[Rfam]
RNA sequence: AGUUGUGGUGGUUUUCUUUUUGGCACAUUUGUUAAGUUUUCAAAUGGGCCUAACUCUGCCACAUAUAUAAUAUCGGAGAUGGCAAAGGCUUGUGACGGAGAUAUCUCUCUUAAGCCUUUCCUGCAUCAGAGAAUGGCUCCCACAUGU
Numbered sequence: 001a002g003u004u005g006u007g008g009u010g011g012u013u014u015u016c017u018u019u020u021u022g023g024c025a026c027a028u029u030u031g032u033u034a035a036g037u038u039u040u041c042a043a044a045u046g047g048g049c050c051u052a053a054c055u056c057u058g059c060c061a062c063a064u065a066u067a068u069a070a071u072a073u074c075g076g077a078g079a080u081g082g083c084a085a086a087g088g089c090u091u092g093u094g095a096c097g098g099a100g101a102u103a104u105c106u107c108u109c110u111u112a113a114g115c116c117u118u119u120c121c122u123g124c125a126u127c128a129g130a131g132a133a134u135g136g137c138u139c140c141c142a143c144a145u146g147u
Base pairs, nucleotide, nucleotide: 005062006061007060008059009058010057011056022050023049024048026046027045028044029043030042031041075140076139077138078137080135081090082089083088106132107131108130109129110128
Small nucleolar RNA SNORA12: a 147-nucleotide RNA. Pairs were carried over by alignment from the consensus structure, which was predicted with RNAalifold. U108 belongs to the H/ACA family of snoRNAs. The sequence is predicted to guide the pseudouridylation of the U372 residue in the 28S rRNA subunit. However it has not been reported as a pseudouridylation site. The family's RNA type in Rfam is H/ACA-box small nucleolar RNA. For this family Rfam cites "A novel experimental approach for systematic identification of box H/ACA snoRNAs from eukaryotes" (Gu et al., Nucleic Acids Res, 2005).